[Rfam]
RNA sequence: AUGAAAGUAGGGGGAGAGACUGCGUAUUAGCUGCGCAGCGCCGAAGGAGCAAGCAAAAUUUGUGAAUCUCUCAGGCAAAGAAGACUCUUACAGGACG
Numbered sequence: 001a002u003g004a005a006a007g008u009a010g011g012g013g014g015a016g017a018g019a020c021u022g023c024g025u026a027u028u029a030g031c032u033g034c035g036c037a038g039c040g041c042c043g044a045a046g047g048a049g050c051a052a053g054c055a056a057a058a059u060u061u062g063u064g065a066a067u068c069u070c071u072c073a074g075g076c077a078a079a080g081a082a083g084a085c086u087c088u089u090a091c092a093g094g095a096c097g
Base pairs, nucleotide, nucleotide: 007091008090009089010088011087012086013085020038021037022036023035024034025033040076041075042074043072044071047070048069049068053063054062
This 97-nucleotide sequence from Alkalihalophilus pseudofirmus belongs to the Rfam family "Glycine riboswitch aptamer". It scores 67 bits against the family's covariance model.